[Rfam]
RNA sequence: UGAUACCAGGGUCAAAAGGUCUAAACCCACAUGAGCUUGCUCAUAGGUGGGGGAAAGACCUUGGGACCCGCCCCGAUAUGAGCAUAAAAGUGGGAUGAUAAUCCCACGAUAUGCGAAUAUUGGGGAGAAUUGUGGGAGUGCGUAGCACGGAGCAAUUCGUAGGUAUCA
Numbered sequence: 001u002g003a004u005a006c007c008a009g010g011g012u013c014a015a016a017a018g019g020u021c022u023a024a025a026c027c028c029a030c031a032u033g034a035g036c037u038u039g040c041u042c043a044u045a046g047g048u049g050g051g052g053g054a055a056a057g058a059c060c061u062u063g064g065g066a067c068c069c070g071c072c073c074c075g076a077u078a079u080g081a082g083c084a085u086a087a088a089a090g091u092g093g094g095a096u097g098a099u100a101a102u103c104c105c106a107c108g109a110u111a112u113g114c115g116a117a118u119a120u121u122g123g124g125g126a127g128a129a130u131u132g133u134g135g136g137a138g139u140g141c142g143u144a145g146c147a148c149g150g151a152g153c154a155a156u157u158c159g160u161a162g163g164u165a166u167c168a
Base pairs, nucleotide, nucleotide: 001168002167003166004165005164006163007162011067012066013065017061018060019059020058021057022056026052027051028050029048030047031044032043033042034041035040072124073123074122075121076120077119078118079117082114083113084112085111090107091106092105093104094103095102096101127158128157129156130155131154132153133152138148139147140146141145
Shown here is a 168-nucleotide RNA, a member of the family "Clostridiales-1 RNA".
The family has 194 seed sequences and 1,172 matches in Rfam 15.1.
By type it is a small RNA.